[Rfam]
RNA sequence: UCAACCGCUGGACAGGGACGGUCUCGAGGGUUGGGGAGCCCGACGACGGACUGCAUCUCUGAGAUGACACCGGGUCAUAGGGAGCCUGGCGUGAUCGUUUCGGCGAAGGAG
Number, nucleotide and partner (000 for none) at each position: 001u000002c000003a000004a000005c000006c105007g104008c103009u102010g101011g100012a099013c061014a060015g059016g058017g000018a000019c053020g052021g051022u050023c049024u048025c000026g000027a000028g041029g040030g039031u038032u037033g000034g000035g000036g000037a032038g031039c030040c029041c028042g000043a000044c000045g000046a000047c000048g024049g023050a022051c021052u020053g019054c000055a000056u000057c000058u016059c015060u014061g013062a000063g096064a095065u094066g000067a092068c091069a000070c000071c088072g087073g086074g085075u084076c000077a000078u000079a000080g000081g000082g000083a000084g075085c074086c073087u072088g071089g000090c000091g068092u067093g000094a065095u064096c063097g000098u000099u012100u011101c010102g009103g008104c007105g006106a000107a000108g000109g000110a000111g000
Rfam assigns this 111-nucleotide RNA sequence to the family "Actinomyces-1 RNA". The sequence is in the family's curated seed alignment.